[Rfam]
Annotation: A member of the RNA family "23S methyl RNA motif" from Tetragenococcus muriaticus, 105 nucleotides long. The base pairs follow the family's consensus structure, which is taken from published work.
RNA sequence: UUUUCAUUGGUUUUUAUCAGCGUCCUGUUCUGAUAAAAGUUAGUGAAAAGAACUUCACUAACGUAAUGGCUCGCAGUGCUAGACACCGAGUUAUUACGUUUUUUA
Numbered sequence: 001u002u003u004u005c006a007u008u009g010g011u012u013u014u015u016a017u018c019a020g021c022g023u024c025c026u027g028u029u030c031u032g033a034u035a036a037a038a039g040u041u042a043g044u045g046a047a048a049a050g051a052a053c054u055u056c057a058c059u060a061a062c063g064u065a066a067u068g069g070c071u072c073g074c075a076g077u078g079c080u081a082g083a084c085a086c087c088g089a090g091u092u093a094u095u096a097c098g099u100u101u102u103u104u105a
Stems, first nucleotide, its partner, number of pairs: 002048018060100014076086003